RNA: Lysine riboswitch aptamer
RNA sequence: AAAUGAAGUAGAGGUUGCGUUAAUCAUCAGUAACCUGUCCGAUGCGUCAGGCCGCAUGAGAAGACAGGCAAAAGGGUGCGACGCCGAAGGAAGAUAUGAUGUCUGAGCAUAUCCUUCUGGGCAUGUGAUGAAGAAUCAUAUGACUGUCAUCCGAGAGGAUGGGGAGCUACUGAAGGA
Dot-bracket structure: ......(((((.....(((((...(........((((((.......................)))))).......)...)))))...((((.((((((.........)))))).))))((.((((((((.....)))))))).)).((((((....))))))....)))))......